[Rfam]
Nucleotides: 063
Base pairs, nucleotide, nucleotide: 001060002059003058004057005056006055007054008053011050012049013048015046016045017044018043020042021041022040023038024037025036
Number, partner (000 for none) and nucleotide at each position: 001060a002059g003058u004057g005056u006055a007054a008053c009000a010000a011050c012049u013048c014000u015046u016045c017044u018043c019000c020042u021041u022040c023038c024037g025036a026000a027000a028000a029000c030000c031000a032000a033000u034000a035000a036025u037024c038023g039000a040022g041021a042020a043018g044017a045016g046015a047000u048013g049012a050011g051000c052000g053008g054007u055006u056005g057004u058003g059002c060001u061000u062000c063000a